The family of this 103-nucleotide sequence from Clostridium novyi is "TPP riboswitch aptamer (THI element)". Lineage of the source: Bacteria > Bacillati > Bacillota > Clostridium > Clostridium novyi. Vitamin B(1) in its active form thiamin pyrophosphate (TPP) is an essential coenzyme that is synthesised by coupling of pyrimidine and thiazole moieties in bacteria. The family's consensus secondary structure is taken from published work. Gene Ontology term of the family: thiamine pyrophosphate binding. It scores 72 bits against the family's covariance model.

RNA sequence: AUUAAGUUGCAGGGGUGCCUAACUUAGGCUGAGAAGAAAUUUUUCUAACCCUUAGAACCUGAAACUAGGUAAUUCUAGCGGAGGAAGCAAUAUAGUUUCAUAU
Numbered sequence: 001a002u003u004a005a006g007u008u009g010c011a012g013g014g015g016u017g018c019c020u021a022a023c024u025u026a027g028g029c030u031g032a033g034a035a036g037a038a039a040u041u042u043u044u045c046u047a048a049c050c051c052u053u054a055g056a057a058c059c060u061g062a063a064a065c066u067a068g069g070u071a072a073u074u075c076u077a078g079c080g081g082a083g084g085a086a087g088c089a090a091u092a093u094a095g096u097u098u099c100a101u102a103u
Stems, first nucleotide, its partner, number of pairs: 006091005011052004017029005036045003058084003065078004